[Rfam]
RNA: Small nucleolar RNA SNORA5
Organism: Gymnodraco acuticeps
RNA sequence: UGCAGCUUUGUCAAAUUCGGUGCUCUCUCAUUAGUAGGUUGCACUGGCCAAAACAGCUGCAACAGUGACUGUAGUUCAUGGGCCCCACAUUUCUUCACCAUGGAUUUUGGGGAUAAAUAUGUAUUACAGACAAAU
Numbered sequence: 001u002g003c004a005g006c007u008u009u010g011u012c013a014a015a016u017u018c019g020g021u022g023c024u025c026u027c028u029c030a031u032u033a034g035u036a037g038g039u040u041g042c043a044c045u046g047g048c049c050a051a052a053a054c055a056g057c058u059g060c061a062a063c064a065g066u067g068a069c070u071g072u073a074g075u076u077c078a079u080g081g082g083c084c085c086c087a088c089a090u091u092u093c094u095u096c097a098c099c100a101u102g103g104a105u106u107u108u109g110g111g112g113a114u115a116a117a118u119a120u121g122u123a124u125u126a127c128a129g130a131c132a133a134a135u
Stems, first nucleotide, its partner, number of pairs: 002060004018046006026038003071127005076121001083112005